[Rfam]
RNA sequence: CCCGCGGCUAGACGGAAAGACCCCAUGCACCUUUACUGUAGCUUUACAUUGGACUGUGACACGGCCUGUGUAGGAUAGCUGGGAGCCUAUGAAGUGGGGACGCUAGUUCUCAUGGAGGCGACGUUGAAAUACCAGCCUGGUAGUGUUGCGGUUCUAACCUGGCCCCCUGAUCGGGGGUGGGGACCGUGUAUGGUAGGCAGUUUGACUGGGGCGGUCUCCUCCCAAAGAGUAACGGAGGAGUGCGAAGGUAACCUAGGUACGGUCGGACAUCGUACUGAUAGUGCAAUGGCAUAAGGUUGCUUGACUGCGAGACUGACAAGUCGAGCAGGUGCGAAAGCAGGUCAUAGUGAUCCGGUGGUUCUGAAUGGAAGGGCCAUCGCUCAACGGAUAAAAGGUACGCUGGGGAUAACAGGCUGAUUCCUCCCAAGAGUUCAUAUCGACGGGGGAGUUUGGCACCUCGAUGUCGGCUCAUCACAUCCUGGGGCUGUAGCCGGUCCCAAGGGUAUGGCUGUUCGCCAUUUAAAGUGGUACGUGAGCUGGGUUCAAAACGUCGUGAGACAGUUUGGUCCCUAUCUGCCGUGGGCGUU
Numbered sequence: 001c002c003c004g005c006g007g008c009u010a011g012a013c014g015g016a017a018a019g020a021c022c023c024c025a026u027g028c029a030c031c032u033u034u035a036c037u038g039u040a041g042c043u044u045u046a047c048a049u050u051g052g053a054c055u056g057u058g059a060c061a062c063g064g065c066c067u068g069u070g071u072a073g074g075a076u077a078g079c080u081g082g083g084a085g086c087c088u089a090u091g092a093a094g095u096g097g098g099g100a101c102g103c104u105a106g107u108u109c110u111c112a113u114g115g116a117g118g119c120g121a122c123g124u125u126g127a128a129a130u131a132c133c134a135g136c137c138u139g140g141u142a143g144u145g146u147u148g149c150g151g152u153u154c155u156a157a158c159c160u161g162g163c164c165c166c167c168u169g170a171u172c173g174g175g176g177g178u179g180g181g182g183a184c185c186g187u188g189u190a191u192g193g194u195a196g197g198c199a200g201u202u203u204g205a206c207u208g209g210g211g212c213g214g215u216c217u218c219c220u221c222c223c224a225a226a227g228a229g230u231a232a233c234g235g236a237g238g239a240g241u242g243c244g245a246a247g248g249u250a251a252c253c254u255a256g257g258u259a260c261g262g263u264c265g266g267a268c269a270u271c272g273u274a275c276u277g278a279u280a281g282u283g284c285a286a287u288g289g290c291a292u293a294a295g296g297u298u299g300c301u302u303g304a305c306u307g308c309g310a311g312a313c314u315g316a317c318a319a320g321u322c323g324a325g326c327a328g329g330u331g332c333g334a335a336a337g338c339a340g341g342u343c344a345u346a347g348u349g350a351u352c353c354g355g356u357g358g359u360u361c362u363g364a365a366u367g368g369a370a371g372g373g374c375c376a377u378c379g380c381u382c383a384a385c386g387g388a389u390a391a392a393a394g395g396u397a398c399g400c401u402g403g404g405g406a407u408a409a410c411a412g413g414c415u416g417a418u419u420c421c422u423c424c425c426a427a428g429a430g431u432u433c434a435u436a437u438c439g440a441c442g443g444g445g446g447a448g449u450u451u452g453g454c455a456c457c458u459c460g461a462u463g464u465c466g467g468c469u470c471a472u473c474a475c476a477u478c479c480u481g482g483g484g485c486u487g488u489a490g491c492c493g494g495u496c497c498c499a500a501g502g503g504u505a506u507g508g509c510u511g512u513u514c515g516c517c518a519u520u521u522a523a524a525g526u527g528g529u530a531c532g533u534g535a536g537c538u539g540g541g542u543u544c545a546a547a548a549c550g551u552c553g554u555g556a557g558a559c560a561g562u563u564u565g566g567u568c569c570c571u572a573u574c575u576g577c578c579g580u581g582g583g584c585g586u587u
Stems, first nucleotide, its partner, number of pairs: 001583008010575003014570002022404004027400002029396005035201004042193002045190004051154012064141003068137001078136005085119003094113008158181003162178006204216004217239006240385001242342002248300006254280002257275006281290002305328004311322003330339003353379007361372002413454003417451001418448007428438002465540001466538004470532001471529005478503002481498006505519005546564004550559003

Shown here is a 587-nucleotide part of an RNA from Betaproteobacteria bacterium UKL13-2, a member of the family "Bacterial large subunit ribosomal RNA".
It scores 2751 bits against the family's covariance model.
The family's consensus secondary structure is taken from published work.